[Rfam]
RNA sequence: CGGGGGUGCAUUGUAGUUGCAUUGCAUGUGGCAGACUGGGAGUGCAAUGCCCCUGCCAUGCAGCCCGG
Numbered sequence: 001c002g003g004g005g006g007u008g009c010a011u012u013g014u015a016g017u018u019g020c021a022u023u024g025c026a027u028g029u030g031g032c033a034g035a036c037u038g039g040g041a042g043u044g045c046a047a048u049g050c051c052c053c054u055g056c057c058a059u060g061c062a063g064c065c066c067g068g
Base pairs, nucleotide, nucleotide: 001068003066004065006064007062008061009060010059011058013056014055015054016053019050021048022047023046024045025044026043027042
RNA: mir-33 microRNA precursor family
Organism: Edolisoma coerulescens